[Rfam]
RNA: Glycine riboswitch aptamer
Organism: Dokdonella fugitiva
RNA sequence: CGGUUCGCGGUGGGAGAAGCGGCGCACGACGCCGCUGCCGAAGGCGCAACGCCCGUAAUCGCUCAGGCCCUGCACCACCGCGAACGG
Numbered sequence: 001c002g003g004u005u006c007g008c009g010g011u012g013g014g015a016g017a018a019g020c021g022g023c024g025c026a027c028g029a030c031g032c033c034g035c036u037g038c039c040g041a042a043g044g045c046g047c048a049a050c051g052c053c054c055g056u057a058a059u060c061g062c063u064c065a066g067g068c069c070c071u072g073c074a075c076c077a078c079c080g081c082g083a084a085c086g087g
Stems, first nucleotide, its partner, number of pairs: 006082008019035004037068003040064002044062003050055001